[Rfam]
Description: Shown here is a 347-nucleotide RNA sequence from Sanguibacteroides justesenii, a member of the family "Bacterial RNase P class A". A search with the family's covariance model found it, with a score of 251 bits. Rfam links the family to the GO terms ribonuclease P activity, dimeric ribonuclease P complex and tRNA processing.
RNA sequence: AAAGCAGGCCGUUCUAUCGCUGUCCUGAAAAGGAGAGAGGAAAGUCCGGGCAACAUAGGGCAUCGUGCUUCCUAACGGGAAGAUAUCCGAAAGGAUAUAGUAAUGUAACAGAAAAAAACCGUUCCCUCCGUGGAAUAAGGGUGAAAAGGCGGGGUAAGAGCCCACCGGUAUUCCGGGUAACCGGAGUAGCCGUACAUCUCACGAGUUGCAAGACCAUGUACACUAACGCUUAGGCCGGCCCGGCUGAUGUUAGGGGGUAGGUCGCUUGAGCUGUGGAGAGAUCUGCAGACUAGAUAAAUGAUAGAAACCGCAAGGUACGGAACCCGGCUUACAGGCCUGCUUUUUUU
Numbered sequence: 001a002a003a004g005c006a007g008g009c010c011g012u013u014c015u016a017u018c019g020c021u022g023u024c025c026u027g028a029a030a031a032g033g034a035g036a037g038a039g040g041a042a043a044g045u046c047c048g049g050g051c052a053a054c055a056u057a058g059g060g061c062a063u064c065g066u067g068c069u070u071c072c073u074a075a076c077g078g079g080a081a082g083a084u085a086u087c088c089g090a091a092a093g094g095a096u097a098u099a100g101u102a103a104u105g106u107a108a109c110a111g112a113a114a115a116a117a118a119c120c121g122u123u124c125c126c127u128c129c130g131u132g133g134a135a136u137a138a139g140g141g142u143g144a145a146a147a148g149g150c151g152g153g154g155u156a157a158g159a160g161c162c163c164a165c166c167g168g169u170a171u172u173c174c175g176g177g178u179a180a181c182c183g184g185a186g187u188a189g190c191c192g193u194a195c196a197u198c199u200c201a202c203g204a205g206u207u208g209c210a211a212g213a214c215c216a217u218g219u220a221c222a223c224u225a226a227c228g229c230u231u232a233g234g235c236c237g238g239c240c241c242g243g244c245u246g247a248u249g250u251u252a253g254g255g256g257g258u259a260g261g262u263c264g265c266u267u268g269a270g271c272u273g274u275g276g277a278g279a280g281a282u283c284u285g286c287a288g289a290c291u292a293g294a295u296a297a298a299u300g301a302u303a304g305a306a307a308c309c310g311c312a313a314g315g316u317a318c319g320g321a322a323c324c325c326g327g328c329u330u331a332c333a334g335g336c337c338u339g340c341u342u343u344u345u346u347u
Stems, first nucleotide, its partner, number of pairs: 001343010011332001012306007020037002023034004042330003046327005051208004058241004063204005068082005083098001085096004099199002103197005119140002121136005148166002151163003168190001169188008212263004223253005233245004271288007